Background
A member of the RNA family "Antisense RNA which regulates isiA expression" from Musa balbisiana, 196 nucleotides long.

RNA sequence: AAUAACCAAUAUGAACUUGGGUAAGGGUCAGUUGGUAAAUUUUUUACAUCUCCCCCCCAGGGGAACAGGUAUCAACUAUUAUGCCCCCAACAUUGGUUAAUAAACAGCCUUGAGCACUAGAAGAAAAAGCACCUAGACCUAACCAAAAUUAAGUAAUACCCAAAAGGGUAAGUCAUUUUUUAUUUCUAUCGUUCCU
Dot-bracket structure: .......................................................................................................................................................(((.((....(((..................)))..)).)))...
Numbered sequence: 001a002a003u004a005a006c007c008a009a010u011a012u013g014a015a016c017u018u019g020g021g022u023a024a025g026g027g028u029c030a031g032u033u034g035g036u037a038a039a040u041u042u043u044u045u046a047c048a049u050c051u052c053c054c055c056c057c058c059a060g061g062g063g064a065a066c067a068g069g070u071a072u073c074a075a076c077u078a079u080u081a082u083g084c085c086c087c088c089a090a091c092a093u094u095g096g097u098u099a100a101u102a103a104a105c106a107g108c109c110u111u112g113a114g115c116a117c118u119a120g121a122a123g124a125a126a127a128a129g130c131a132c133c134u135a136g137a138c139c140u141a142a143c144c145a146a147a148a149u150u151a152a153g154u155a156a157u158a159c160c161c162a163a164a165a166g167g168g169u170a171a172g173u174c175a176u177u178u179u180u181u182a183u184u185u186c187u188a189u190c191g192u193u194c195c196u
Stems, first nucleotide, its partner, number of pairs: 152193003156189002162185003
Annotation
Lineage of the source: Eukaryota > Euphyllophyta > Liliopsida > commelinids > Musa. A search with the family's covariance model found it, with a score of 73 bits.